[Rfam]
RNA sequence: AACAUGCUUUUCGAUAGAUAUUGAAUAUUGUUAGGGGAUAGGGUCCGGAAGUCUCUACCCGAGAACCGUAAAUUUUCGGACUACGAGUGAAUAUGUCAUAGGA
Dot-bracket structure: ....................(((.(...(.((.(((.......))).)))........(((((((.......)))))))..).))).................
Shown here is a 103-nucleotide sequence from Paenibacillus apis, a member of the family "Purine riboswitch aptamer". The organism belongs to Paenibacillus, within Bacteria.